[Rfam]
RNA sequence: UAGGUGUAGUAGGUGGCUACUUUGUUUUCAAAGAGGAAAGUCCGAGCUACACAAAGACAGGAUUCCAUUUAACAAAUGGCUAGAGUAAUCUAAGGGAAAGUGCAACAGAAAAUAACCGCCACUUGUGGUAAGGGUGAAAAGGCGGGGUAAAAGCCCACCGAUUUUGGAGCAAUCCAAAAUGCCGUGCAAACCCAAUCCGUAGCAAGAGAAGUUGGUUUGAAGUCUUUGAUUUUUGCUUCUCGCUUGAUGGGUAUUGUGAAAUACCCACUAGAUAAAUAUCCACCCACGACAGAACUCGGCUUAUCGCUACGCCUAUCAC
Numbered sequence: 001u002a003g004g005u006g007u008a009g010u011a012g013g014u015g016g017c018u019a020c021u022u023u024g025u026u027u028u029c030a031a032a033g034a035g036g037a038a039a040g041u042c043c044g045a046g047c048u049a050c051a052c053a054a055a056g057a058c059a060g061g062a063u064u065c066c067a068u069u070u071a072a073c074a075a076a077u078g079g080c081u082a083g084a085g086u087a088a089u090c091u092a093a094g095g096g097a098a099a100g101u102g103c104a105a106c107a108g109a110a111a112a113u114a115a116c117c118g119c120c121a122c123u124u125g126u127g128g129u130a131a132g133g134g135u136g137a138a139a140a141g142g143c144g145g146g147g148u149a150a151a152a153g154c155c156c157a158c159c160g161a162u163u164u165u166g167g168a169g170c171a172a173u174c175c176a177a178a179a180u181g182c183c184g185u186g187c188a189a190a191c192c193c194a195a196u197c198c199g200u201a202g203c204a205a206g207a208g209a210a211g212u213u214g215g216u217u218u219g220a221a222g223u224c225u226u227u228g229a230u231u232u233u234u235g236c237u238u239c240u241c242g243c244u245u246g247a248u249g250g251g252u253a254u255u256g257u258g259a260a261a262u263a264c265c266c267a268c269u270a271g272a273u274a275a276a277u278a279u280c281c282a283c284c285c286a287c288g289a290c291a292g293a294a295c296u297c298g299g300c301u302u303a304u305c306g307c308u309a310c311g312c313c314u315a316u317c318a319c
Base pairs, nucleotide, nucleotide: 001315002314003313004312005311006310007309008308009307010306011304012284013283014282015281016280018278020033021032022031023030024029038302039301040300042299043298044297045296046295047202048201049200050199056227057226060198061197062196063195064194065079066078067077068076069075080094081092082091083090084089095193096192100191101190102187103186104185116133117132118129119128120127121126141159142158144156145155146154160182161180162179163178164177165176166175167174168173206241207240208239209238220232221231222230223229248267249266250265251264252263253262254261255260